[Rfam]
RNA sequence: AAACAGACCUCUAUGUUUUGAUUCUUUGACAGUUUUGGACCCCUAGUCCAUUGUUGACUCGGUCAACGCUGACGUGGCACCCUAAGUGAGGUGCCACAUGUCAAUUUUUUUUGCCUUGGGGGUCCAAAACUGCCAAAGAAUCAAAACAUAGGGGGCUGUUU
Dot-bracket structure: ((.(((.(...(((((((((((((((((.((((((((((((((((..........................((.(((((((........)))))))...))...............)))))))))))))))).)))))))))))))))))...).))).))
Numbered sequence: 001a002a003a004c005a006g007a008c009c010u011c012u013a014u015g016u017u018u019u020g021a022u023u024c025u026u027u028g029a030c031a032g033u034u035u036u037g038g039a040c041c042c043c044u045a046g047u048c049c050a051u052u053g054u055u056g057a058c059u060c061g062g063u064c065a066a067c068g069c070u071g072a073c074g075u076g077g078c079a080c081c082c083u084a085a086g087u088g089a090g091g092u093g094c095c096a097c098a099u100g101u102c103a104a105u106u107u108u109u110u111u112u113g114c115c116u117u118g119g120g121g122g123u124c125c126a127a128a129a130c131u132g133c134c135a136a137a138g139a140a141u142c143a144a145a146a147c148a149u150a151g152g153g154g155g156c157u158g159u160u161u
Stems, first nucleotide, its partner, number of pairs: 001161002004158003008154001012150017030132016072101002075096007